[Rfam]
RNA: SAH (S-adenosyl-L-homocysteine) riboswitch aptamer
Organism: Variovorax sp. OV329
RNA sequence: CUCCCCAAGGAGCGUUGCAGCGCUCGCCGCCACACACAUCUGGCGGCGCAGCGUCAGGCUUGGGGCCUCAGCUUUUUUGCAACGACGCUCGCCUGUA
Numbered sequence: 001c002u003c004c005c006c007a008a009g010g011a012g013c014g015u016u017g018c019a020g021c022g023c024u025c026g027c028c029g030c031c032a033c034a035c036a037c038a039u040c041u042g043g044c045g046g047c048g049c050a051g052c053g054u055c056a057g058g059c060u061u062g063g064g065g066c067c068u069c070a071g072c073u074u075u076u077u078u079g080c081a082a083c084g085a086c087g088c089u090c091g092c093c094u095g096u097a
Base pairs, nucleotide, nucleotide: 003065004064005063006062007061008060021053022052023051024050